[Rfam]
RNA: Bacterial RNase P class A
Organism: Anaerobium acetethylicum
RNA sequence: UGAGUAGGACAAAUGAUCGCAGCUGCGGAUGCCGAAAGGCAGCAGGUGAGGAAAGUCCGGGCUUCAUAGGGCAGGAUGCCGGAUAACGUCCGGUGGAGGCGACUCCAAGGCUAGUGCAACAGAAAUAUACCGCCGGCUUCGGCCGGUAAGGGUGGAAGGGUAGCUUAAGAGACUACCGCCUUCCUGGUAACAGGGAGGGCAUAUGUAAACCCCAUUCGAAGCAAGACCGAAUAAAAAGCGAUACGGCUGCCCGCCGUGCUUUUAGGUGGGUCGCUAGAGCCUGCUGGCAACAGCAGGUGUAGAUAGAUGAUCAUUCACGACAUAACCCGGCUUAUCGUCCUGCUCAUUUG
Numbered sequence: 001u002g003a004g005u006a007g008g009a010c011a012a013a014u015g016a017u018c019g020c021a022g023c024u025g026c027g028g029a030u031g032c033c034g035a036a037a038g039g040c041a042g043c044a045g046g047u048g049a050g051g052a053a054a055g056u057c058c059g060g061g062c063u064u065c066a067u068a069g070g071g072c073a074g075g076a077u078g079c080c081g082g083a084u085a086a087c088g089u090c091c092g093g094u095g096g097a098g099g100c101g102a103c104u105c106c107a108a109g110g111c112u113a114g115u116g117c118a119a120c121a122g123a124a125a126u127a128u129a130c131c132g133c134c135g136g137c138u139u140c141g142g143c144c145g146g147u148a149a150g151g152g153u154g155g156a157a158g159g160g161u162a163g164c165u166u167a168a169g170a171g172a173c174u175a176c177c178g179c180c181u182u183c184c185u186g187g188u189a190a191c192a193g194g195g196a197g198g199g200c201a202u203a204u205g206u207a208a209a210c211c212c213c214a215u216u217c218g219a220a221g222c223a224a225g226a227c228c229g230a231a232u233a234a235a236a237a238g239c240g241a242u243a244c245g246g247c248u249g250c251c252c253g254c255c256g257u258g259c260u261u262u263u264a265g266g267u268g269g270g271u272c273g274c275u276a277g278a279g280c281c282u283g284c285u286g287g288c289a290a291c292a293g294c295a296g297g298u299g300u301a302g303a304u305a306g307a308u309g310a311u312c313a314u315u316c317a318c319g320a321c322a323u324a325a326c327c328c329g330g331c332u333u334a335u336c337g338u339c340c341u342g343c344u345c346a347u348u349u350g
Stems, first nucleotide, its partner, number of pairs: 001346010011335001012315007020048002023045004028040001053333003057330005062221004069252004074217005079093005094108001095106004109212002114210002116206003130151002132147006159177005178200001179198008225272004234263006243257005279298008